[Rfam]
RNA sequence: GGACCGGCGGGAGGCACGGAUCCGAGCGGUCCUCACCGACACCCUCUGGUGCACGGAGACACGCGGUCGCCUAGACCACGUCGGGGAGCCAGAGGCGAGACCGACCCGUCGACGA
Dot-bracket structure: ....(((((((.[[[......[[[.[.[[...................................(((((((....]].]..]]]...]]]...)))))..))..)))))))....
Rfam assigns this 115-nucleotide RNA to the family "c-di-GMP-II-GAG riboswitch aptamer". A reference for the family is Weinberg et al. (2017), "Bioinformatic analysis of riboswitch structures uncovers variant classes with altered ligand specificity", Proc Natl Acad Sci U S A. Gene Ontology terms of the family: regulation of gene expression and cyclic-di-GMP binding. It is one of the family's seed sequences.